RNA sequence: CGACACCGUGCGGGAGAGUCCAUCGGAGAGGUUUCCGGUGGCGCCGAAGGAGCAAAUCCUCCCCGGAAUCUCUCAGGCACCCGGUACCGCGCGGGCGAG
Numbered sequence: 001c002g003a004c005a006c007c008g009u010g011c012g013g014g015a016g017a018g019u020c021c022a023u024c025g026g027a028g029a030g031g032u033u034u035c036c037g038g039u040g041g042c043g044c045c046g047a048a049g050g051a052g053c054a055a056a057u058c059c060u061c062c063c064c065g066g067a068a069u070c071u072c073u074c075a076g077g078c079a080c081c082c083g084g085u086a087c088c089g090c091g092c093g094g095g096c097g098a099g
Base pairs, nucleotide, nucleotide: 006094007093008092009091010090011089012088013087020041021040022039023038024037025036026035027034043078044077045076046074047073050072051071052070057065